RNA sequence: GUGGGCAUCUUACCGGACAGUGCUGGAUUUUCGCUCACUCUAACACUGUCUGGUAACGAUGUUCAA
Numbered sequence: 001g002u003g004g005g006c007a008u009c010u011u012a013c014c015g016g017a018c019a020g021u022g023c024u025g026g027a028u029u030u031u032c033g034c035u036c037a038c039u040c041u042a043a044c045a046c047u048g049u050c051u052g053g054u055a056a057c058g059a060u061g062u063u064c065a066a
Stems, first nucleotide, its partner, number of pairs: 002065008010056013024042004
Notes: The record is a 66-nucleotide sequence from Erinaceus europaeus, which matches "mir-8/mir-141/mir-200 microRNA precursor family" in Rfam. The family has 164 seed sequences and 2,669 matches in Rfam 15.1. The match comes from Rfam's covariance-model search (70 bits). The family's consensus secondary structure was predicted with RNAalifold.